[Rfam]
Histone 3' UTR stem-loop: a 46-nucleotide RNA from Sapajus apella. For this family Rfam cites "The sequence of the stem and flanking sequences at the 3' end of histone mRNA are critical determinants for the binding of the stem-loop binding protein" (Williams and Marzluff, Nucleic Acids Res, 1995). Rfam's curators write: The mRNAs of metazoan histone genes lack a poly-A tail. 3' end processing occurs at a site between a highly conserved stem-loop (modelled by this family) and a purine rich region around 20 nts downstream (the histone downstream element, or HDE). The stem-loop is bound by a 31 kDa stem-loop binding protein (SLBP - also termed the histone hairpin binding protein, or HBP). It scores 39 bits against the family's covariance model. Gene Ontology term of the family: mRNA 3'-end processing by stem-loop binding and cleavage. The source organism's lineage runs through Eukaryota, Euteleostomi, Eutheria, Euarchontoglires and Sapajus. By type it is a cis-regulatory element.
RNA sequence: CCCAAGGCUCUUUUCAGAGCCACCUAGAGAUCAAUAAAAAAUUGCU
Numbered sequence: 001c002c003c004a005a006g007g008c009u010c011u012u013u014u015c016a017g018a019g020c021c022a023c024c025u026a027g028a029g030a031u032c033a034a035u036a037a038a039a040a041a042u043u044g045c046u
Stems, first nucleotide, its partner, number of pairs: 006021006
Dot-bracket structure: .....((((((....)))))).........................